RNA sequence: GGAGUUGGCCAGGCAAUCGCCGCUUUCGUAAGAAAGGGGAGGAAAGUCCGGGCUCCAAAGGGCAGGGUGCCAGAUAACGUCUGGGCGGCGUGAGCCGACGACAAGUGCAGCAGAGAGAAGACCGCCUAAGCAUGUUUACAUGCCGGUAAGGGUGAAAGGGUGCGGUAAGAGCGCACCGCACCUCUGGUAACAGAGUGUGGCAAGGUAAACUCCACCCGGAGCAAGACCAAAUAGGAUCCCUCAACGUGUGGCCCGCAUGGGGAUCGGGUAGGUUGCUUGAAUCAGUGAGCGAUUGCUGAUCUAGAGGAAUGGUUGCCCACGACAGAACCCGGCUUACGGCCAACUCCACUC
Numbered sequence: 001g002g003a004g005u006u007g008g009c010c011a012g013g014c015a016a017u018c019g020c021c022g023c024u025u026u027c028g029u030a031a032g033a034a035a036g037g038g039g040a041g042g043a044a045a046g047u048c049c050g051g052g053c054u055c056c057a058a059a060g061g062g063c064a065g066g067g068u069g070c071c072a073g074a075u076a077a078c079g080u081c082u083g084g085g086c087g088g089c090g091u092g093a094g095c096c097g098a099c100g101a102c103a104a105g106u107g108c109a110g111c112a113g114a115g116a117g118a119a120g121a122c123c124g125c126c127u128a129a130g131c132a133u134g135u136u137u138a139c140a141u142g143c144c145g146g147u148a149a150g151g152g153u154g155a156a157a158g159g160g161u162g163c164g165g166u167a168a169g170a171g172c173g174c175a176c177c178g179c180a181c182c183u184c185u186g187g188u189a190a191c192a193g194a195g196u197g198u199g200g201c202a203a204g205g206u207a208a209a210c211u212c213c214a215c216c217c218g219g220a221g222c223a224a225g226a227c228c229a230a231a232u233a234g235g236a237u238c239c240c241u242c243a244a245c246g247u248g249u250g251g252c253c254c255g256c257a258u259g260g261g262g263a264u265c266g267g268g269u270a271g272g273u274u275g276c277u278u279g280a281a282u283c284a285g286u287g288a289g290c291g292a293u294u295g296c297u298g299a300u301c302u303a304g305a306g307g308a309a310u311g312g313u314u315g316c317c318c319a320c321g322a323c324a325g326a327a328c329c330c331g332g333c334u335u336a337c338g339g340c341c342a343a344c345u346c347c348a349c350u351c
Stems, first nucleotide, its partner, number of pairs: 001347010012317007020039002023036005044335003048332005053221004060254004065217005070084005085099001086097004100212002105210002107206002122151002124147003130143005159177006178201001179199003182195005225274004235265006245259005281300008
Bacterial RNase P class A: a 351-nucleotide RNA sequence from Alteromonas mediterranea. The family's RNA type in Rfam is ribozyme. The family's consensus secondary structure is taken from published work. Rfam's curators put it in the seed alignment. Taxonomically the source falls in Alteromonas (Bacteria, Pseudomonadati, Pseudomonadota, Gammaproteobacteria).